[Rfam]
RNA sequence: GUGCUCUUUGCUUUGGUAAUCUAGCUUUAUGAUCCUUAAUUAAAAUCAUAGAGCUAUAUUACCAAAGUAAAGGCAA
Numbered sequence: 001g002u003g004c005u006c007u008u009u010g011c012u013u014u015g016g017u018a019a020u021c022u023a024g025c026u027u028u029a030u031g032a033u034c035c036u037u038a039a040u041u042a043a044a045a046u047c048a049u050a051g052a053g054c055u056a057u058a059u060u061a062c063c064a065a066a067g068u069a070a071a072g073g074c075a076a
Stems, first nucleotide, its partner, number of pairs: 002075003007071014022056005028050006
RNA: mir-9/mir-79 microRNA precursor family